Shown here is a 219-nucleotide sequence from Exobacillus caeni, a member of the family "T-box leader". From the family's description: Uncharged tRNA acts as the effector for transcription antitermination of genes in the T-box leader family. T-boxes are found upstream of many aminoacyl-tRNA synthetase genes and some amino acid biosynthetic genes usually in Gram-positive bacteria. The anticodon of a specific tRNA base pairs to a specifier sequence within the T-box motif, and the NCCA acceptor tail of the tRNA base pairs to a conserved bulge in the T-box antiterminator hairpin. It scores 124 bits against the family's covariance model. Gene Ontology term of the family: tRNA binding. NCBI's taxonomy places the organism under Bacteria, Bacillati, Caryophanales, Guptibacillaceae, Exobacillus.
RNA sequence: GUAACGUCAAUGAGAAAGAGAGUAGUUAUUUAGGAAGCUCCAGCGAGUCAGGGGCGGUGGGAGCCUGAUGCGGAUAAAAUAACGAACCGUACUUUCUCGAUGCAAAUCUGAACAACAGCUUAGUAGGAUUUGCCGGAAGUGCGCCGUUAUGCAUGUAAGCUGGUUCUGCUGUGCAGAACAAGAAGAGUGGUACCGCGGGAAUAUUCUCUCGUCUCUUUA
Numbered sequence: 001g002u003a004a005c006g007u008c009a010a011u012g013a014g015a016a017a018g019a020g021a022g023u024a025g026u027u028a029u030u031u032a033g034g035a036a037g038c039u040c041c042a043g044c045g046a047g048u049c050a051g052g053g054g055c056g057g058u059g060g061g062a063g064c065c066u067g068a069u070g071c072g073g074a075u076a077a078a079a080u081a082a083c084g085a086a087c088c089g090u091a092c093u094u095u096c097u098c099g100a101u102g103c104a105a106a107u108c109u110g111a112a113c114a115a116c117a118g119c120u121u122a123g124u125a126g127g128a129u130u131u132g133c134c135g136g137a138a139g140u141g142c143g144c145c146g147u148u149a150u151g152c153a154u155g156u157a158a159g160c161u162g163g164u165u166c167u168g169c170u171g172u173g174c175a176g177a178a179c180a181a182g183a184a185g186a187g188u189g190g191u192a193c194c195g196c197g198g199g200a201a202u203a204u205u206c207u208c209u210c211g212u213c214u215c216u217u218u219a
Base pairs, nucleotide, nucleotide: 007100008099015095016094017093018092025083026082027081028080029079030078037071038070047069048068049067050066051065052064103132104131105130106129107128108127109126134146135145136144163179164178165177166176167175168174169173184216185215186214187213195212196211197210198209199208